[Rfam]
RNA: Makes More Granules Regulator RNA (mmgR)
RNA sequence: UCGUGGUCCCCUUCCUUGGGGCGUUUCCUCCCUAGACUUGGCCCGGGCGCCGAUCGGCGACCGGGCCUUUUUAUUGUUUAUG
Number, nucleotide and partner (000 for none) at each position: 001u000002c000003g000004u000005g000006g000007u000008c000009c021010c020011c019012u000013u000014c000015c000016u000017u000018g000019g011020g010021g009022c000023g000024u000025u000026u000027c000028c000029u000030c000031c000032c000033u000034a000035g000036a000037c000038u000039u000040g067041g066042c065043c064044c063045g062046g061047g000048c059049g058050c057051c000052g000053a000054u000055c000056g000057g050058c049059g048060a000061c046062c045063g044064g043065g042066c041067c040068u000069u000070u000071u000072u000073a000074u000075u000076g000077u000078u000079u000080a000081u000082g000